[Rfam]
RNA sequence: GGGGGUGUUUGCUCGGCUGGUGCCGGCCCCGGUCUUCAAAACCGGUGAGGGGUGUGAACAACGCCCCUGGUGGGUUCGAUUCCCAUCCACCCCC
Numbered sequence: 001g002g003g004g005g006u007g008u009u010u011g012c013u014c015g016g017c018u019g020g021u022g023c024c025g026g027c028c029c030c031g032g033u034c035u036u037c038a039a040a041a042c043c044g045g046u047g048a049g050g051g052g053u054g055u056g057a058a059c060a061a062c063g064c065c066c067c068u069g070g071u072g073g074g075u076u077c078g079a080u081u082c083c084c085a086u087c088c089a090c091c092c093c094c
Stems, first nucleotide, its partner, number of pairs: 001094007013026005029045005048068005071085004